[Rfam]
RNA sequence: CCUAUGAUUCCGUUCAUAGUAGCCUAAUUCGACGUGCGUCAUUGGUAACGAUGGCGUGCGAAGCUCGAAUGACAAUGUACUGAAGUUUACGCAUGUAAACGUCGUGGAUUUGCUGAUAGGUAAACACGAAUCUGGAAGCUUCAUCCGGAAUAAGGC
Numbered sequence: 001c002c003u004a005u006g007a008u009u010c011c012g013u014u015c016a017u018a019g020u021a022g023c024c025u026a027a028u029u030c031g032a033c034g035u036g037c038g039u040c041a042u043u044g045g046u047a048a049c050g051a052u053g054g055c056g057u058g059c060g061a062a063g064c065u066c067g068a069a070u071g072a073c074a075a076u077g078u079a080c081u082g083a084a085g086u087u088u089a090c091g092c093a094u095g096u097a098a099a100c101g102u103c104g105u106g107g108a109u110u111u112g113c114u115g116a117u118a119g120g121u122a123a124a125c126a127c128g129a130a131u132c133u134g135g136a137a138g139c140u141u142c143a144u145c146c147g148g149a150a151u152a153a154g155g156c
Base pairs, nucleotide, nucleotide: 002019003018004017005016006015007014028069029068030067031066032065033060034059035058036057037056038055039054040053041052042051043050044049085100086099087098088097089096102129103128104127105126113120114119131149132148133147134146135145136144
Rfam assigns this 156-nucleotide RNA sequence from Legionella pneumophila to the family "Group II catalytic intron D1-D4-7". Gene Ontology term of the family: Group II intron splicing. The family has 244 seed sequences and 1,296 matches in Rfam 15.1. From the family's description: Group II introns are found in rRNA, tRNA and mRNA of organelles in fungi, plants and protists, and also in mRNA in bacteria.